[Rfam]
RNA sequence: GGGUGCCCCGAAGACCUGCUCGCUAGGCUACGCACGGAGGACGCGGUUCCUCACGGGCCCCGCGCCCGCCUAGGGGAAAGUCCCCGGACCGCCGGCAGAGAGUGCCGGGCGCUGCCCGCGCCCUGGCCCGCCCCGCAGCCACGCAGCUGCCGCCGAGACGCCCCCAGGCCGAGCGGGUGAGCGCGGGGCGGGCGCUCGUCACGGCCACAGAGACGCAGGUAGUGCGCAGGCGCACCAACAGAACGGGGCUCACUCUCGGGACAUC
Numbered sequence: 001g002g003g004u005g006c007c008c009c010g011a012a013g014a015c016c017u018g019c020u021c022g023c024u025a026g027g028c029u030a031c032g033c034a035c036g037g038a039g040g041a042c043g044c045g046g047u048u049c050c051u052c053a054c055g056g057g058c059c060c061c062g063c064g065c066c067c068g069c070c071u072a073g074g075g076g077a078a079a080g081u082c083c084c085c086g087g088a089c090c091g092c093c094g095g096c097a098g099a100g101a102g103u104g105c106c107g108g109g110c111g112c113u114g115c116c117c118g119c120g121c122c123c124u125g126g127c128c129c130g131c132c133c134c135g136c137a138g139c140c141a142c143g144c145a146g147c148u149g150c151c152g153c154c155g156a157g158a159c160g161c162c163c164c165c166a167g168g169c170c171g172a173g174c175g176g177g178u179g180a181g182c183g184c185g186g187g188g189c190g191g192g193c194g195c196u197c198g199u200c201a202c203g204g205c206c207a208c209a210g211a212g213a214c215g216c217a218g219g220u221a222g223u224g225c226g227c228a229g230g231c232g233c234a235c236c237a238a239c240a241g242a243a244c245g246g247g248g249c250u251c252a253c254u255c256u257c258g259g260g261a262c263a264u265c
Stems, first nucleotide, its partner, number of pairs: 002265004007260005014220006023073006037052005079250002082248004094106004107123006125193001127191001130189006140181001142179001150176004160169003222235005
RNA: RNase MRP